Archaeal large subunit ribosomal RNA: a 452-nucleotide part of an RNA from uncultured marine crenarchaeote 'Gulf of Maine'. The family's consensus secondary structure is taken from published work. It is one of the family's seed sequences.
[Rfam]
RNA sequence: CCAACCGAAGCGUCUCGCAGGGCGUGGUUUGUGGAGAUAGCGUUUCCGGUAGAGCACUGAUAGAAGGGCGCGGGGGAGAAAUCCCUCACCCUCCAUUCAAACUCCGAACGGAUACGCAUCGUAGAAGCAGGCACACGGGCUCAUGUGGCGUAAGGCUCAUGGCCGAAAGGGGUUUAACCCAGACUGAAGUUAAGGUCCCCAAAUUUUUGCUAAGUGUCAAGCGAAAGAGCGUGUUCUCGCCAAGACAGCAGGGAGGUAAGCUCAGAAGCAGCUAUCCUUUAAAAAAUGUGUAACAACUUACCUGCCGAGGGGGGAUGCCUCAAAAACGGACGGGGCUAAAGCAAAAUACCGAUACUUUAGAUAAUUAUCAUUAGAUAAUUCGUGGUAGGUUGGCGUAGUGAUUGGGUCGAAGCAGGGCGAUGACGUCCUGUGGACCGAUUUCUAUUGCAGAU
Dot-bracket structure: ((((((....(((((....))))).(((((((...(((.((((.(((....(((....((..(.((((...((((((....)))))).)))).)..))...)).)....))).)))))))......)))))).)...(((.((((.((.......)))))))))....(((......)))...(((((((...(((......(.((((((................(((.((((((((.(.......(((((.(((..(((.........)))..)))(...)(...((......)).).)))))...).)))))))))))...................))))))))))...)))))))(((((((........))))).))....))))))(.(((.((((((......((((((((....))))))))...)))))).)))..).....